[Rfam]
RNA sequence: CGAGUAAAUCAGGCAGUCGCGGGCGAGAGCCGAAAGGCUCCGCGCGAGGAAAGUCCGGGCUUCACAGAGCGAGGAUAACGGCUAACAGCCGCCGGGGGCGACCCCAGGGAUAGUGCAACAGAAAAUAACUGCUUCCUCUGCCGGAAUUUGGCGGGGGAUGUGAUGGUGGAAAGGUGAGGUAAGAGCUCACCGGGGUGGCGGAGACGUCACCGCCGUGUAAACCCUAUCCGAAGCAACACCGCGGAGGGACAAGAUGCUUGCUCGGCAGUCCCGUGGAGGUGGCACCGAGCCGCUGCGGCAACGCACGGCCAAGAUAGAUGACUGCCCAAUACAGAACCCGGCUUAUAGAUUUGCUCGCUUG
Dot-bracket structure: ((((((((((((((((((.((.(((.(...........).))).))....[[[.[[[[[((((.....[...(((((.((((.....)))).(((((....)))).)((...(((((...........(.((.((((((((((.....)))))))))).))...).......((((((.......))))))(((.(((((....))))))).)..)))..)))))))))))))...((((.....(((((....((((...].))))))))).....)))).......((((.((((....))))))))..........)))))))..........]]]]]]]].).))))))))))....

About this RNA: Shown here is a 361-nucleotide RNA sequence from Ruminococcus difficilis, a member of the family "Bacterial RNase P class A". Ribonuclease P (RNase P) is a ubiquitous endoribonuclease, found in archaea, bacteria and eukarya as well as chloroplasts and mitochondria. The match comes from Rfam's covariance-model search (258 bits). Taxonomically the source falls in Ruminococcus (Bacteria, Bacillota, Clostridia, Oscillospiraceae).